[Rfam]
RNA sequence: CAAAAGCUUCUUACCGUCUGCCUACAUGGUUUCCACAGUGAUAAUUUUAAAUAAAUACUCAUUAUCACUGUGGAAAUCAUGUAGGCAGACGGUAAGAAGC
Numbered sequence: 001c002a003a004a005a006g007c008u009u010c011u012u013a014c015c016g017u018c019u020g021c022c023u024a025c026a027u028g029g030u031u032u033c034c035a036c037a038g039u040g041a042u043a044a045u046u047u048u049a050a051a052u053a054a055a056u057a058c059u060c061a062u063u064a065u066c067a068c069u070g071u072g073g074a075a076a077u078c079a080u081g082u083a084g085g086c087a088g089a090c091g092g093u094a095a096g097a098a099g100c
Stems, first nucleotide, its partner, number of pairs: 016090007024082020
RNA: mir-36 microRNA precursor family
Organism: Octopus sinensis